[Rfam]
RNA sequence: CAGAGAAGUCAAUGAUGGUUUUAUCCAACGUGUCUGAACCUGUCUGAAGCUUCUCAGUGAUGCAAUCUGUGUGGUUCUGAGACUUCUCUAAGU
Numbered sequence: 001c002a003g004a005g006a007a008g009u010c011a012a013u014g015a016u017g018g019u020u021u022u023a024u025c026c027a028a029c030g031u032g033u034c035u036g037a038a039c040c041u042g043u044c045u046g047a048a049g050c051u052u053c054u055c056a057g058u059g060a061u062g063c064a065a066u067c068u069g070u071g072u073g074g075u076u077c078u079g080a081g082a083c084u085u086c087u088c089u090a091a092g093u
Stems, first nucleotide, its partner, number of pairs: 004087007
The record is a 93-nucleotide RNA sequence from Pteropus alecto, which matches "Small nucleolar RNA SNORD91 family" in Rfam. The family's RNA type in Rfam is C/D-box small nucleolar RNA. The family has 24 seed sequences and 977 matches in Rfam 15.1. The organism belongs to Pteropus, within Eukaryota. The pairing is the family consensus, mapped onto this sequence. A reference for the family is Huttenhofer et al. (2001), "RNomics: an experimental approach that identifies 201 candidates for novel, small, non-messenger RNAs in mouse", EMBO J.